This 535-nucleotide part of an RNA from Bigelowiella natans belongs to the Rfam family "Eukaryotic small subunit ribosomal RNA". The sequence is in the family's curated seed alignment. The base pairs follow the family's consensus structure, which is taken from published work. The source organism's lineage runs through Eukaryota, Sar, Cercozoa, Chlorarachniophyceae and Bigelowiella.

[Rfam]
RNA sequence: AGUGUUGUUGCGGUUAAAACGUCCGUAGUCGAAUUAAAGGCUCGUAACGCGUCUGACGCUAGGAGUUACUGGGGUGACCAUCCCCAAGGGGUAGCUUGUGUAGCCCUGCGGAGAUAUCGCCCCAUGUUACCUUGACGAAAUUGUGGUGUUCAUAGCAAGUACGGAGUACUCUAGGCACAAUAGCAUGGAAUAACAACGCAAGGACUCCGACCCGGAUUGCGCUAGCGCUCGGGAUCGGAGGAAGGAUUAAUAGGAGCAGUCGGGGGCGGUCGUAUUCCAUUGCUAGAGGUGAAAUUCGGUGACCAAUGGAGGACGAACAACAGCGAAAGCAUCCGUCCAGUAUGUUUUCAUUGAUCAGUGGACGAAAGCUAGGGGAGCGAACACGAUUAGGCACCGUGUGUAGUCCUAGCCGUAAACGAUACCGACUAGGGGUUGGUGGACGUUCUUCUCGAUAGCUCCAUCAGCACCUUAUGAGAAAUCACAAGCUUUCGGGUUCCGGGGGGAGUACGGUCGCAAGGCUGAAACUUAAAGGAAU
Number, nucleotide and partner (000 for none) at each position: 001a000002g000003u000004g000005u000006u000007g000008u000009u000010g000011c498012g497013g496014u000015u000016a000017a000018a000019a495020c000021g363022u362023c361024c360025g000026u000027a000028g355029u354030c353031g000032a000033a000034u000035u000036a000037a000038a000039g000040g000041c000042u000043c000044g000045u000046a000047a000048c000049g000050c000051g000052u000053c000054u000055g000056a000057c000058g000059c000060u000061a000062g000063g000064a000065g000066u000067u000068a000069c000070u000071g000072g000073g000074g000075u000076g000077a000078c000079c000080a000081u000082c000083c000084c000085c000086a000087a000088g000089g000090g000091g000092u000093a000094g000095c000096u000097u000098g000099u000100g000101u000102a000103g000104c000105c000106c000107u000108g000109c000110g000111g000112a000113g000114a000115u000116a000117u000118c000119g000120c000121c000122c000123c000124a000125u000126g000127u000128u000129a000130c000131c000132u000133u000134g000135a000136c000137g000138a000139a000140a000141u000142u000143g000144u000145g000146g000147u000148g000149u000150u000151c000152a000153u000154a000155g000156c000157a000158a000159g000160u000161a000162c000163g000164g000165a000166g000167u000168a000169c000170u000171c000172u000173a000174g000175g000176c000177a000178c000179a000180a000181u000182a000183g000184c000185a000186u000187g000188g000189a000190a000191u000192a000193a000194c000195a000196a000197c000198g000199c000200a000201a000202g000203g000204a000205c000206u000207c000208c000209g000210a000211c000212c000213c000214g000215g000216a000217u000218u000219g000220c000221g000222c000223u000224a000225g000226c000227g000228c000229u000230c000231g000232g000233g000234a000235u000236c000237g000238g000239a000240g000241g000242a000243a000244g000245g000246a000247u000248u000249a000250a000251u000252a000253g349254g348255a347256g346257c344258a343259g000260u000261c340262g000263g000264g338265g337266g336267c335268g334269g333270u000271c315272g314273u000274a000275u311276u310277c309278c308279a307280u306281u305282g304283c000284u000285a000286g297287a296288g295289g000290u000291g000292a000293a000294a000295u288296u287297c286298g000299g000300u000301g000302a000303c000304c282305a281306a280307u279308g278309g277310a276311g275312g000313a000314c272315g271316a000317a000318c000319a000320a000321c000322a000323g330324c329325g000326a000327a000328a000329g324330c323331a000332u000333c269334c268335g267336u266337c265338c264339a000340g261341u000342a000343u258344g257345u000346u256347u255348u254349c253350a000351u000352u000353g030354a029355u028356c000357a000358g000359u000360g024361g023362a022363c021364g000365a000366a000367a000368g410369c409370u408371a407372g406373g405374g000375g000376a000377g404378c403379g000380a000381a000382c398383a397384c396385g395386a000387u000388u000389a000390g000391g000392c000393a000394c000395c385396g384397u383398g382399u000400g000401u000402a000403g378404u377405c373406c372407u371408a370409g369410c368411c000412g000413u000414a000415a000416a000417c000418g000419a000420u000421a494422c493423c492424g487425a000426c485427u000428a469429g468430g467431g000432g000433u464434u463435g462436g461437u460438g459439g458440a457441c000442g456443u455444u454445c000446u000447u000448c000449u000450c000451g000452a000453u000454a444455g443456c442457u440458c439459c438460a437461u436462c435463a434464g433465c000466a000467c430468c429469u428470u000471a000472u000473g480474a479475g000476a000477a000478a000479u474480c473481a000482c000483a000484a000485g426486c000487u424488u000489u000490c000491g000492g423493g422494u421495u019496c013497c012498g011499g000500g527501g526502g525503g000504a000505g000506u000507a000508c000509g520510g519511u518512c517513g000514c000515a000516a000517g512518g511519c510520u509521g000522a000523a000524a000525c502526u501527u500528a000529a000530a000531g000532g000533a000534a000535u000